[Rfam]
RNA sequence: UCUAAACCUACCAGUGGAUGGCUCGGUUCAAGUGCCGAAGAAGGGCGUGCCAAGCUGCGAUAAGCUCCGGGUAGACGCAAGGAAUCUAUGAUCCGGAGAUGCCCUAAUAGGACAUCCUGACGCUUUAUGCGUCUUUCCGUAAGGAAAGGGAACGCCCCGAAUUGAAACAUCUCAGUAGGGGCAGGAGAAGAAAUCAACCGAGAUGUCGUUAGUAGAGGCGAUCGAACACGACAGAGCUCAAACCGAAUCCCGCAAGGGAGAUGUGGUGUUAUAAGCCCACCGUACGAUGCCGGAUGUGAAGCGGAAGUUGCCUGGAAGGGCACACUACAGAGGGUGAAAGUCCCGUACGCAGAAGCAGACGGUGUUAGGUGGUGUCUUGAGUACCGCGGGUUGGAAUUCUCGCGGGAAUUCAGGGGUCAUCAACCCCUAAAGCUAAAUACACCUUGAAACCGAUAGCGAAUUAGUAGCGUGAGCGAAAGCUGAAAAGUAACCCUGAAAAGGUGGUUAAAAGUGCCUGAAAUUGGUAGGUGAUCGCGG
Numbered sequence: 001u002c003u004a005a006a007c008c009u010a011c012c013a014g015u016g017g018a019u020g021g022c023u024c025g026g027u028u029c030a031a032g033u034g035c036c037g038a039a040g041a042a043g044g045g046c047g048u049g050c051c052a053a054g055c056u057g058c059g060a061u062a063a064g065c066u067c068c069g070g071g072u073a074g075a076c077g078c079a080a081g082g083a084a085u086c087u088a089u090g091a092u093c094c095g096g097a098g099a100u101g102c103c104c105u106a107a108u109a110g111g112a113c114a115u116c117c118u119g120a121c122g123c124u125u126u127a128u129g130c131g132u133c134u135u136u137c138c139g140u141a142a143g144g145a146a147a148g149g150g151a152a153c154g155c156c157c158c159g160a161a162u163u164g165a166a167a168c169a170u171c172u173c174a175g176u177a178g179g180g181g182c183a184g185g186a187g188a189a190g191a192a193a194u195c196a197a198c199c200g201a202g203a204u205g206u207c208g209u210u211a212g213u214a215g216a217g218g219c220g221a222u223c224g225a226a227c228a229c230g231a232c233a234g235a236g237c238u239c240a241a242a243c244c245g246a247a248u249c250c251c252g253c254a255a256g257g258g259a260g261a262u263g264u265g266g267u268g269u270u271a272u273a274a275g276c277c278c279a280c281c282g283u284a285c286g287a288u289g290c291c292g293g294a295u296g297u298g299a300a301g302c303g304g305a306a307g308u309u310g311c312c313u314g315g316a317a318g319g320g321c322a323c324a325c326u327a328c329a330g331a332g333g334g335u336g337a338a339a340g341u342c343c344c345g346u347a348c349g350c351a352g353a354a355g356c357a358g359a360c361g362g363u364g365u366u367a368g369g370u371g372g373u374g375u376c377u378u379g380a381g382u383a384c385c386g387c388g389g390g391u392u393g394g395a396a397u398u399c400u401c402g403c404g405g406g407a408a409u410u411c412a413g414g415g416g417u418c419a420u421c422a423a424c425c426c427c428u429a430a431a432g433c434u435a436a437a438u439a440c441a442c443c444u445u446g447a448a449a450c451c452g453a454u455a456g457c458g459a460a461u462u463a464g465u466a467g468c469g470u471g472a473g474c475g476a477a478a479g480c481u482g483a484a485a486a487g488u489a490a491c492c493c494u495g496a497a498a499a500g501g502u503g504g505u506u507a508a509a510a511g512u513g514c515c516u517g518a519a520a521u522u523g524g525u526a527g528g529u530g531a532u533c534g535c536g537g
Stems, first nucleotide, its partner, number of pairs: 006529009020515001021480002025451002027448006033441002042105004046059003065098006074086002109118003135146004153184001154182005164171002194201002205232005215223002235434004243266003248259004277372004287365004301350003307323001309322004326330001332344003384405007412428005467474002